[Rfam]
RNA: U4atac minor spliceosomal RNA
RNA sequence: GCCUUCCUUGUCUUGGGGAGCAGAAAUGUUCAAUGAACGUAUAGUGAGGACAUUGCUGCUGACACCAAUGAUAUUACCCCCGUCCGCCGAUCGCUAGCGAUUGGAGUUCGGAAUUUUUGGACCA
Number, nucleotide and partner (000 for none) at each position: 001g000002c000003c000004u000005u019006c018007c017008u016009u015010g000011u000012c000013u000014u000015g009016g008017g007018g006019a005020g059021c058022a057023g056024a000025a054026a053027u052028g051029u050030u049031c048032a000033a000034u000035g000036a000037a045038c044039g000040u000041a000042u000043a000044g038045u037046g000047a000048g031049g030050a029051c028052a027053u026054u025055g000056c023057u022058g021059c020060u000061g000062a000063c000064a000065c000066c000067a000068a000069u000070g000071a000072u000073a000074u000075u000076a000077c000078c000079c000080c111081c110082g109083u000084c000085c000086g000087c104088c103089g102090a101091u100092c099093g000094c000095u000096a000097g000098c000099g092100a091101u090102u089103g088104g087105a000106g000107u000108u000109c082110g081111g080112a000113a000114u000115u000116u000117u000118u000119g000120g000121a000122c000123c000124a000